[Rfam]
This 47-nucleotide RNA sequence belongs to the Rfam family "Hepatitis C virus stem-loop I".
Nucleotides: 047
Base pairs, nucleotide, nucleotide: 006042007041008040010039011038018036019035020034021033022032023031024030
Number, partner (000 for none) and nucleotide at each position: 001000c002000a003000a004000u005000c006042g007041g008040g009000u010039g011038g012000g013000a014000g015000c016000a017000u018036g019035c020034c021033u022032c023031a024030g025000a026000a027000a028000a029000c030024u031023u032022g033021g034020g035019g036018c037000u038011c039010c040008c041007c042006c043000a044000u045000u046000g047000a
Rfam's curators put it in the seed alignment. For this family Rfam cites "The Coding Region of the HCV Genome Contains a Network of Regulatory RNA Structures" (Pirakitikulr et al., Mol Cell, 2016). It is annotated as a cis-regulatory element.